Source information:
The record is a 73-nucleotide RNA sequence from Syncephalastrum racemosum, which matches "tRNA" in Rfam. The source organism's lineage runs through Eukaryota, Mucoromycotina, Mucorales, Syncephalastraceae and Syncephalastrum. It scores 72 bits against the family's covariance model.
[Rfam]
RNA sequence: GGAGCUGUAGCGUAAUGGAUAACGCGCCAGACUUCGAAUCUGGAGAUUGUGGGUUCGAGUCCCAUCAGCUUCG
Numbered sequence: 001g002g003a004g005c006u007g008u009a010g011c012g013u014a015a016u017g018g019a020u021a022a023c024g025c026g027c028c029a030g031a032c033u034u035c036g037a038a039u040c041u042g043g044a045g046a047u048u049g050u051g052g053g054u055u056c057g058a059g060u061c062c063c064a065u066c067a068g069c070u071u072c073g
Base pairs, nucleotide, nucleotide: 001072002071003070004069005068006067007066010025011024012023013022027043028042029041030040031039049065050064051063052062053061
Its family is annotated with triplet codon-amino acid adaptor activity in the Gene Ontology. Transfer RNA (tRNA) molecules are approximately 80 nucleotides in length.